This 129-nucleotide sequence from Ligilactobacillus hayakitensis belongs to the Rfam family "Enterococcus sRNA 68 (Lacto-3 RNA)".

RNA sequence: UGCGAUGAGUCGAGAAAAAUCAGGCAAUCUUUUGAUUGUUUCGCUGCGGCGACAAGUGAUUAUUUUUCAUAGACAGAGUACGAAUAUCACCGGAUUGUGAUGUACUUGCUUAGUGUAGAUGUGAACUGC
Dot-bracket structure: .................(((((((((((......))))))((((....))))....)))))...............(((((....(((((......))))))))))........((((.(....)))))
Numbered sequence: 001u002g003c004g005a006u007g008a009g010u011c012g013a014g015a016a017a018a019a020u021c022a023g024g025c026a027a028u029c030u031u032u033u034g035a036u037u038g039u040u041u042c043g044c045u046g047c048g049g050c051g052a053c054a055a056g057u058g059a060u061u062a063u064u065u066u067u068c069a070u071a072g073a074c075a076g077a078g079u080a081c082g083a084a085u086a087u088c089a090c091c092g093g094a095u096u097g098u099g100a101u102g103u104a105c106u107u108g109c110u111u112a113g114u115g116u117a118g119a120u121g122u123g124a125a126c127u128g129c
Stems, first nucleotide, its partner, number of pairs: 018061005023040006041052004077106005086101005115129004120125001

Lineage of the source: Bacteria > Bacillati > Lactobacillales > Ligilactobacillus > Ligilactobacillus hayakitensis. By type it is a small RNA. The base pairs follow the family's consensus structure, which is taken from published work.